[Rfam]
RNA: c-di-GMP-I riboswitch aptamer
RNA sequence: AAGUCGUUAAGGCAAACUUGUCGAAAGACAAGGACGCAAAGCCACAGGGUCUGCCGUUCGCGAGAACAAUGACAGCCUGGCCGCCGGA
Numbered sequence: 001a002a003g004u005c006g007u008u009a010a011g012g013c014a015a016a017c018u019u020g021u022c023g024a025a026a027g028a029c030a031a032g033g034a035c036g037c038a039a040a041g042c043c044a045c046a047g048g049g050u051c052u053g054c055c056g057u058u059c060g061c062g063a064g065a066a067c068a069a070u071g072a073c074a075g076c077c078u079g080g081c082c083g084c085c086g087g088a
Base pairs, nucleotide, nucleotide: 012037013036017032018031019030020029021028022027041081042080043079046078047077048076049073050072051071056067057066058065059064